[Rfam]
RNA sequence: CCGUCCCAGUCAUUGGGGAGUAGCCUGUUCCAGAAUAUCUCUGGAAAAUUCGUAUCAACAUGCUCGUUUUAAUAAAACGUGGUACGAAUGCCGAAUCGGUUGGCAAGACCAUAGACAUAUAUAUCACCAUUGGUUGGGGGUGAUUUAUAUGUAUAUGGAACUACCCAGCCGAGGCU
Numbered sequence: 001c002c003g004u005c006c007c008a009g010u011c012a013u014u015g016g017g018g019a020g021u022a023g024c025c026u027g028u029u030c031c032a033g034a035a036u037a038u039c040u041c042u043g044g045a046a047a048a049u050u051c052g053u054a055u056c057a058a059c060a061u062g063c064u065c066g067u068u069u070u071a072a073u074a075a076a077a078c079g080u081g082g083u084a085c086g087a088a089u090g091c092c093g094a095a096u097c098g099g100u101u102g103g104c105a106a107g108a109c110c111a112u113a114g115a116c117a118u119a120u121a122u123a124u125c126a127c128c129a130u131u132g133g134u135u136g137g138g139g140g141u142g143a144u145u146u147a148u149a150u151g152u153a154u155a156u157g158g159a160a161c162u163a164c165c166c167a168g169c170c171g172a173g174g175c176u
Base pairs, nucleotide, nucleotide: 028046029045030044048089049088050087051086052085053084054083055082056081057080065079066078067077068076069075
Dot-bracket structure: ...........................(((.............))).((((((((((.......(((((.....))))))))))))))).......................................................................................
Notes:
Manganese Mn2+ riboswitch aptamer (yybP-ykoY): a 176-nucleotide RNA from Xenorhabdus innexi. Taxonomically the source falls in Xenorhabdus (Bacteria, Pseudomonadota, Gammaproteobacteria, Morganellaceae). About the family: This RNA was originally discovered in E. coli during a large scale screen and was named SraF. The family was later found to exist upstream of related families of protein genes in many bacteria, including the the yybP and ykoK genes in B. subtilis.